RNA sequence: CAACUUGGUACACCUAACCUCUCAUAGGCUAUGUCUGACCAACUUAAAAUGCACAGACAAAGCCUAGUAGAGGCUAGAUUUAUAAGGACAA
Numbered sequence: 001c002a003a004c005u006u007g008g009u010a011c012a013c014c015u016a017a018c019c020u021c022u023c024a025u026a027g028g029c030u031a032u033g034u035c036u037g038a039c040c041a042a043c044u045u046a047a048a049a050u051g052c053a054c055a056g057a058c059a060a061a062g063c064c065u066a067g068u069a070g071a072g073g074c075u076a077g078a079u080u081u082a083u084a085a086g087g088a089c090a091a
Base pairs, nucleotide, nucleotide: 012079014077015076016075018073019072020071027064028063029062030061032059033058034057035056036055
Rfam assigns this 91-nucleotide RNA sequence from Drosophila busckii to the family "mir-282 microRNA precursor family".
Pairs were carried over by alignment from the consensus structure, which was predicted with RNAalifold.
Taxonomically the source falls in Dorsilopha (Eukaryota, Dicondylia, Eumetabola, Acalyptratae).
It scores 57 bits against the family's covariance model.
Its family is annotated with miRNA-mediated post-transcriptional gene silencing and RISC complex in the Gene Ontology.
Rfam 15.1 lists 136 matches to the family in 128 species.